[Rfam]
RNA sequence: AUAUUUUGAUGAGGCGCAUCAAUCAUGAGUAAAGUUUAGAUUACUGUCUGCUAACAGCUAAAUUUGAAAGGGUGCGAUGCCGAAGCAAUUAUAAUAGCAGUUAUAAUUUGUUGGACUUUUUGGUUAAGAGCUGAGAGUUUGUCAUUAUUUAAAAAUAAUGGAGUGCAUCACUUGUA
Numbered sequence: 001a002u003a004u005u006u007u008g009a010u011g012a013g014g015c016g017c018a019u020c021a022a023u024c025a026u027g028a029g030u031a032a033a034g035u036u037u038a039g040a041u042u043a044c045u046g047u048c049u050g051c052u053a054a055c056a057g058c059u060a061a062a063u064u065u066g067a068a069a070g071g072g073u074g075c076g077a078u079g080c081c082g083a084a085g086c087a088a089u090u091a092u093a094a095u096a097g098c099a100g101u102u103a104u105a106a107u108u109u110g111u112u113g114g115a116c117u118u119u120u121u122g123g124u125u126a127a128g129a130g131c132u133g134a135g136a137g138u139u140u141g142u143c144a145u146u147a148u149u150u151a152a153a154a155a156u157a158a159u160g161g162a163g164u165g166c167a168u169c170a171c172u173u174g175u176a
Base pairs, nucleotide, nucleotide: 007170008169009168010167011166016080017079018078019077020076024072032065033064034063035062036061037060038059039058084112085111086110087108088107089106090105091104092103093102094101113140114139115138116137117136118135119134121133122132123131124130142161143160144159145158146157147156148155